[Rfam]
Nucleotides: 050
Base pairs, nucleotide, nucleotide: 004031005030006029007028008027009026010025013022014021015049016048017047019046020045
Number, partner (000 for none) and nucleotide at each position: 001000u002000c003000g004031c005030u006029g007028u008027c009026a010025c011000a012000a013022c014021g015049g016048c017047u018000u019046c020045c021014u022013g023000a024000c025010g026009u027008g028007a029006c030005g031004g032000u033000c034000a035000u036000u037000u038000u039000u040000u041000a042000a043000u044000u045020g046019g047017a048016g049015c050000g